RNA sequence: GUGGGGCGCGUCUAGGGUUCCGCCGUUCGCGGGUCUGGUCCGAGAGACGCAGGCGGCCCGGCGGUGAUGCCGGGGUCGUUCCACGGCGGGAUAAAAGCCCGGGAGAC
Numbered sequence: 001g002u003g004g005g006g007c008g009c010g011u012c013u014a015g016g017g018u019u020c021c022g023c024c025g026u027u028c029g030c031g032g033g034u035c036u037g038g039u040c041c042g043a044g045a046g047a048c049g050c051a052g053g054c055g056g057c058c059c060g061g062c063g064g065u066g067a068u069g070c071c072g073g074g075g076u077c078g079u080u081c082c083a084c085g086g087c088g089g090g091a092u093a094a095a096a097g098c099c100c101g102g103g104a105g106a107c
Stems, first nucleotide, its partner, number of pairs: 008050005015041002020038002022035001023032003052080008082102001084105001088100003
RNA: Guanidine-I riboswitch aptamer